[Rfam]
Nucleotides: 129
Stems, first nucleotide, its partner, number of pairs: 003127008016028003030109002032098002034048004043096002052072002078094005100112003
Number, partner (000 for none) and nucleotide at each position: 001000g002000c003127g004126c005125g006124c007123u008122g009121g010120c011000g012000g013000g014000g015000u016028c017027g018026g019000u020000g021000a022000a023000a024000u025000u026018c027017c028016g029000a030109g031108c032098c033097g034048g035047c036046g037045g038000u039000g040000a041000g042000a043096g044095c045037c046036c047035g048034c049000g050000a051000c052072c053071c054000g055000u056000c057000c058000a059000c060000a061000g062000c063000c064000g065000g066000u067000g068000g069000a070000c071053g072052g073000u074000u075000g076000a077000c078094u079093u080092c081091g082090g083000u084000g085000a086000a087000a088000u089000u090082c091081c092080g093079a094078g095044g096043c097033c098032g099000a100112c101111g102110g103000u104000u105000a106000a107000a108031g109030u110102c111101c112100g113000g114000a115000u116000g117000g118000u119000a120010g121009u122008u123007a124006g125005c126004g127003c128000g129000c